[Rfam]
RNA sequence: GCAGCAGGCCGCUUUGUCGCUCUGAUCACCUCAGGGUUAUCGGGGAGGAAAGUCCGGACACCACAGGGCAGCAUAGUGGGUAACACCCAUCGUCCCGCCCCGGCGGGACAGGACCAGUGCAACAGAAAGGAUGUACAGGUAAUGCUGUAGUGAAAUCAGGUAAACUCUAUGCGGUGCAAUGCCAUGUAUACCGGUUUUGUCGGGCGGCCCGUCCGCACGCCGGAGGGUAGGCAGCUAAAGAUUUGUGGCAACACAAAUCUCAGAUAAAUGACAAAGAUUCUGGUCACUUACCAGAAUACAGAAUCCGGCUUACAGGCCUGCUUUUUUA
Numbered sequence: 001g002c003a004g005c006a007g008g009c010c011g012c013u014u015u016g017u018c019g020c021u022c023u024g025a026u027c028a029c030c031u032c033a034g035g036g037u038u039a040u041c042g043g044g045g046a047g048g049a050a051a052g053u054c055c056g057g058a059c060a061c062c063a064c065a066g067g068g069c070a071g072c073a074u075a076g077u078g079g080g081u082a083a084c085a086c087c088c089a090u091c092g093u094c095c096c097g098c099c100c101c102g103g104c105g106g107g108a109c110a111g112g113a114c115c116a117g118u119g120c121a122a123c124a125g126a127a128a129g130g131a132u133g134u135a136c137a138g139g140u141a142a143u144g145c146u147g148u149a150g151u152g153a154a155a156u157c158a159g160g161u162a163a164a165c166u167c168u169a170u171g172c173g174g175u176g177c178a179a180u181g182c183c184a185u186g187u188a189u190a191c192c193g194g195u196u197u198u199g200u201c202g203g204g205c206g207g208c209c210c211g212u213c214c215g216c217a218c219g220c221c222g223g224a225g226g227g228u229a230g231g232c233a234g235c236u237a238a239a240g241a242u243u244u245g246u247g248g249c250a251a252c253a254c255a256a257a258u259c260u261c262a263g264a265u266a267a268a269u270g271a272c273a274a275a276g277a278u279u280c281u282g283g284u285c286a287c288u289u290a291c292c293a294g295a296a297u298a299c300a301g302a303a304u305c306c307g308g309c310u311u312a313c314a315g316g317c318c319u320g321c322u323u324u325u326u327u328a
Stems, first nucleotide, its partner, number of pairs: 001324001003322008011313001012276007020045007028037001050311003054308005059176004066210004071172005076090005091111001092109007112167002117165002119161002180233004191223005201215005240259008
The record is a 328-nucleotide sequence from Christiangramia fulva, which matches "Bacterial RNase P class A" in Rfam. About the family: Ribonuclease P (RNase P) is a ubiquitous endoribonuclease, found in archaea, bacteria and eukarya as well as chloroplasts and mitochondria. Its best characterised activity is the generation of mature 5'-ends of tRNAs by cleaving the 5'-leader elements of precursor-tRNAs. Cellular RNase Ps are ribonucleoproteins. RNA from bacterial RNase Ps retains its catalytic activity in the absence of the protein subunit, i.e. it is a ribozyme.